[Rfam]
RNA sequence: AGCAGGCCAGCGCGGGGUGCAAAGAAGGCCGUUACCAGGACGGCAGCGCUUUUUGCGUGGGCUCCUUCUUCCCGGGGCCUGUUUUUUU
Numbered sequence: 001a002g003c004a005g006g007c008c009a010g011c012g013c014g015g016g017g018u019g020c021a022a023a024g025a026a027g028g029c030c031g032u033u034a035c036c037a038g039g040a041c042g043g044c045a046g047c048g049c050u051u052u053u054u055g056c057g058u059g060g061g062c063u064c065c066u067u068c069u070u071c072c073c074g075g076g077g078c079c080u081g082u083u084u085u086u087u088u
Base pairs, nucleotide, nucleotide: 001083002082003081004080005079006078007077011075013074014073015072016071022070023069024068025067026066027065028044029043030042031041032040033039047057048056049055